The family of this 68-nucleotide sequence from Bodo saltans is "Trypanosomatid snoRNA TB6Cs1H1". Taxonomically the source falls in Bodo (Eukaryota, Discoba, Kinetoplastea, Eubodonida). By type it is an H/ACA-box small nucleolar RNA. The family's consensus secondary structure was predicted with WAR. It scores 53 bits against the family's covariance model.

[Rfam]
RNA sequence: UGCGCAUCGAAAACACAGGCCUGUGCGAAUUACUUGAGUCGUCUGGUCUGCACCUGUGAUGCGCGAGA
Dot-bracket structure: .((.(((((......((((((....((............))...))))))......))))).))....